[Rfam]
RNA: Lysine riboswitch aptamer
RNA sequence: AGGGCUAGAAGAGGUGCGUUAUUCAGGUAACAAGUUUUAGGAGAGCAAACUCCAGUGAGAACUUGUGAUGGGAAUUAACGCCGAGAGAUUUUUAUUAUUUGCUUUAAUAAAGUUUCGGGCGAUUGGGUUGAAUCCCAAUUGACUGUCACCUAAUGGUGGAGAGCUUCUGGUCUU
Numbered sequence: 001a002g003g004g005c006u007a008g009a010a011g012a013g014g015u016g017c018g019u020u021a022u023u024c025a026g027g028u029a030a031c032a033a034g035u036u037u038u039a040g041g042a043g044a045g046c047a048a049a050c051u052c053c054a055g056u057g058a059g060a061a062c063u064u065g066u067g068a069u070g071g072g073a074a075u076u077a078a079c080g081c082c083g084a085g086a087g088a089u090u091u092u093u094a095u096u097a098u099u100u101g102c103u104u105u106a107a108u109a110a111a112g113u114u115u116c117g118g119g120c121g122a123u124u125g126g127g128u129u130g131a132a133u134c135c136c137a138a139u140u141g142a143c144u145g146u147c148a149c150c151u152a153a154u155g156g157u158g159g160a161g162a163g164c165u166u167c168u169g170g171u172c173u174u
Stems, first nucleotide, its partner, number of pairs: 006169006016081006023074001030066008085116006092110006117144002120141008146159005